[Rfam]
RNA sequence: AUAUAAAUUUAAGCGCCAUGCACCUUCCUGAUACGGACACGGCUUUAUGCCAUUUGGAAGGUUAACGAGGUGGAAAGUGAUCGAAAGAUUCGGCGGAUGCUUUCCCGUAGCCCCGGUCUAUGUGAUAUACUGUACAAACCCAUGGGUGACCAUGAAACAAAGGCAGUAUAAUCCGGGCAA
Numbered sequence: 001a002u003a004u005a006a007a008u009u010u011a012a013g014c015g016c017c018a019u020g021c022a023c024c025u026u027c028c029u030g031a032u033a034c035g036g037a038c039a040c041g042g043c044u045u046u047a048u049g050c051c052a053u054u055u056g057g058a059a060g061g062u063u064a065a066c067g068a069g070g071u072g073g074a075a076a077g078u079g080a081u082c083g084a085a086a087g088a089u090u091c092g093g094c095g096g097a098u099g100c101u102u103u104c105c106c107g108u109a110g111c112c113c114c115g116g117u118c119u120a121u122g123u124g125a126u127a128u129a130c131u132g133u134a135c136a137a138a139c140c141c142a143u144g145g146g147u148g149a150c151c152a153u154g155a156a157a158c159a160a161a162g163g164c165a166g167u168a169u170a171a172u173c174c175g176g177g178c179a180a
Base pairs, nucleotide, nucleotide: 022062023061024060025059026058027057028056030054031053032052072105073104074103075102076101081093082092083091084090106122107121108120109119110118126170127169128168129167130166131165132164141154142153143152144151145150